[Rfam]
RNA sequence: AGGAAUUCUACAGGGUCGUCCUGAGACCACAUGAAACAGAUUCAAAAUACAAGCAUAUUUGCUUGUGACCUUUUGUGACUCAGUUCAUGUGUUCUCAGGUCGCCCCUGCUGAACUUUU
Numbered sequence: 001a002g003g004a005a006u007u008c009u010a011c012a013g014g015g016u017c018g019u020c021c022u023g024a025g026a027c028c029a030c031a032u033g034a035a036a037c038a039g040a041u042u043c044a045a046a047a048u049a050c051a052a053g054c055a056u057a058u059u060u061g062c063u064u065g066u067g068a069c070c071u072u073u074u075g076u077g078a079c080u081c082a083g084u085u086c087a088u089g090u091g092u093u094c095u096c097a098g099g100u101c102g103c104c105c106c107u108g109c110u111g112a113a114c115u116u117u118u
Stems, first nucleotide, its partner, number of pairs: 007112002011108004017102002023096004028091008
RNA: MIR398 microRNA precursor family
Organism: Glycine max